[Rfam]
RNA sequence: UUGCAGGAUAAGUUACAGUGCAGCUUGCACAGUGCUGUGUUGUCGUUCCCCCUGCAAACAGUAACCUGUUUCCAGCUAUCCCUGUUUGUCUAACUAUGCUGGCAACCAGGGACGCAAGGUCUCACACAU
Numbered sequence: 001u002u003g004c005a006g007g008a009u010a011a012g013u014u015a016c017a018g019u020g021c022a023g024c025u026u027g028c029a030c031a032g033u034g035c036u037g038u039g040u041u042g043u044c045g046u047u048c049c050c051c052c053u054g055c056a057a058a059c060a061g062u063a064a065c066c067u068g069u070u071u072c073c074a075g076c077u078a079u080c081c082c083u084g085u086u087u088g089u090c091u092a093a094c095u096a097u098g099c100u101g102g103c104a105a106c107c108a109g110g111g112a113c114g115c116a117a118g119g120u121c122u123c124a125c126a127c128a129u
Stems, first nucleotide, its partner, number of pairs: 003055005015043010081110004086105004
This 129-nucleotide RNA from Channa argus belongs to the Rfam family "Small nucleolar RNA SNORA63". E3 belongs to the H/ACA class of snoRNAs and is involved in the processing of eukaryotic pre-rRNA and has regions of complementarity to 18S rRNA. E3 is encoded in introns in the gene for protein synthesis initiation factor 4AII. Lineage of the source: Eukaryota > Deuterostomia > Actinopteri > Channoidei > Channa. A search with the family's covariance model found it, with a score of 92 bits. For this family Rfam cites "Three small nucleolar RNAs that are involved in ribosomal RNA precursor processing" (Mishra and Eliceiri, Proc Natl Acad Sci U S A, 1997).